The family of this 351-nucleotide sequence from Thalassovita gelatinovora is "Alphaproteobacteria transfer-messenger RNA". A search with the family's covariance model found it, with a score of 314 bits.

[Rfam]
RNA sequence: CCCCUUUUCACCGCCACGCAUCGCGCCUAUAUAUGAGAUGUCUCUUCGGGGACUAUGGACAUAAACGCGCUCGUAAUAAGCGGAUCGGACCCGGGGGCGGUACCCGGCGGCUCCACCAAAUAUCCCUUAUUGGGGGAUCAUGGGGCCGAAAUAGGAUCGACGAACGUCUAAAGGGGUUUGCUUUGUUCCGGUGAGAUACCACCGUUAUCGGUUCAUAUAGUACAAUUGCCAAUAACAAUCGUGCUCCGAUGGCUCUGGCUGCGUAAGCAGUUCGAGUUAUCGAAACUUAAGCCCUUGCGCCUAGCCGCGUAAGGCGGGGUUCGCAGGUACCUGGCAACAGAAACCUGCACU
Numbered sequence: 001c002c003c004c005u006u007u008u009c010a011c012c013g014c015c016a017c018g019c020a021u022c023g024c025g026c027c028u029a030u031a032u033a034u035g036a037g038a039u040g041u042c043u044c045u046u047c048g049g050g051g052a053c054u055a056u057g058g059a060c061a062u063a064a065a066c067g068c069g070c071u072c073g074u075a076a077u078a079a080g081c082g083g084a085u086c087g088g089a090c091c092c093g094g095g096g097g098c099g100g101u102a103c104c105c106g107g108c109g110g111c112u113c114c115a116c117c118a119a120a121u122a123u124c125c126c127u128u129a130u131u132g133g134g135g136g137a138u139c140a141u142g143g144g145g146c147c148g149a150a151a152u153a154g155g156a157u158c159g160a161c162g163a164a165c166g167u168c169u170a171a172a173g174g175g176g177u178u179u180g181c182u183u184u185g186u187u188c189c190g191g192u193g194a195g196a197u198a199c200c201a202c203c204g205u206u207a208u209c210g211g212u213u214c215a216u217a218u219a220g221u222a223c224a225a226u227u228g229c230c231a232a233u234a235a236c237a238a239u240c241g242u243g244c245u246c247c248g249a250u251g252g253c254u255c256u257g258g259c260u261g262c263g264u265a266a267g268c269a270g271u272u273c274g275a276g277u278u279a280u281c282g283a284a285a286c287u288u289a290a291g292c293c294c295u296u297g298c299g300c301c302u303a304g305c306c307g308c309g310u311a312a313g314g315c316g317g318g319g320u321u322c323g324c325a326g327g328u329a330c331c332u333g334g335c336a337a338c339a340g341a342a343a344c345c346u347g348c349a350c351u
Stems, first nucleotide, its partner, number of pairs: 040053005057188005067181002069177004081166002085163003091107005108148007189204004195214002198212003317332004323348006